[Rfam]
RNA sequence: UUCAGAUAUGGUGACAUGGUUCCCAAGACGAUUGUAGGGAAGAUUGUUGGCUCAGUGUGCUCUCUGAGUGGAGUGCUAGUUAUUGCUUUGCCUGUUCCUGUGAUUGUCUCCAAC
Number, nucleotide and partner (000 for none) at each position: 001u000002u113003c000004a000005g110006a000007u000008a107009u106010g105011g104012u000013g000014a101015c100016a099017u000018g097019g096020u000021u094022c000023c000024c000025a000026a000027g000028a000029c000030g000031a000032u000033u000034g000035u000036a000037g077038g076039g000040a074041a000042g000043a000044u000045u000046g000047u000048u000049g063050g062051c000052u000053c000054a000055g000056u000057g000058u000059g000060c000061u000062c050063u049064c000065u000066g000067a000068g000069u000070g000071g000072a000073g000074u040075g000076c038077u037078a000079g000080u000081u000082a000083u000084u000085g000086c000087u000088u000089u000090g000091c000092c000093u000094g021095u000096u019097c018098c000099u016100g015101u014102g000103a000104u011105u010106g009107u008108c000109u000110c005111c000112a000113a002114c000
Overview: The record is a 114-nucleotide sequence from Acipenser ruthenus, which matches "Potassium channel RNA editing signal" in Rfam. By type it is a cis-regulatory element. NCBI's taxonomy places the organism under Eukaryota, Teleostomi, Actinopterygii, Chondrostei, Acipenser. The base pairs follow the family's consensus structure, which is taken from published work. The match comes from Rfam's covariance-model search (90 bits).